[Rfam]
Nucleotides: 125
Stems, first nucleotide, its partner, number of pairs: 007056003010052003015045002020042002022039001023036004057098006064091001100120001102123001106118003
Number, partner (000 for none) and nucleotide at each position: 001000u002000c003000u004000u005000a006000g007056g008055g009054g010052u011051g012050c013000u014000a015045g016044g017000g018000u019000u020042c021041c022039g023036g024035u025034u026033c027000a028000u029000c030000a031000u032000c033026g034025a035024a036023c037000g038000u039022c040000u041021g042020g043000u044016c045015c046000a047000a048000g049000a050012g051011c052010a053000g054009c055008c056007c057098g058097g059096c060095g061094c062093g063000a064091g065000u066000u067000c068000g069000u070000c071000c072000g073000g074000u075000c076000g077000c078000a079000a080000g081000a082000c083000c084000g085000g086000a087000u088000g089000c090000a091064c092000g093062c094061g095060u096059g097058c098057u099000a100120c101000a102123c103000g104000g105000c106118g107117g108116g109000a110000c111000a112000a113000a114000a115000g116108c117107c118106c119000g120100g121000g122000a123102g124000a125000u